[Rfam]
RNA: Purine riboswitch aptamer
Organism: Lysinibacillus composti
RNA sequence: AAAAUCUUUACAAUUGAAACUCAUAUAAUCGCGAGAAUAUGGCUCGCAAGUUUCUACCGACUUACCGUAAAUAAGUCGACUAUGAGGAGCAGUGAGUGAUGG
Numbered sequence: 001a002a003a004a005u006c007u008u009u010a011c012a013a014u015u016g017a018a019a020c021u022c023a024u025a026u027a028a029u030c031g032c033g034a035g036a037a038u039a040u041g042g043c044u045c046g047c048a049a050g051u052u053u054c055u056a057c058c059g060a061c062u063u064a065c066c067g068u069a070a071a072u073a074a075g076u077c078g079a080c081u082a083u084g085a086g087g088a089g090c091a092g093u094g095a096g097u098g099a100u101g102g
Stems, first nucleotide, its partner, number of pairs: 020086006029049001031047005058078007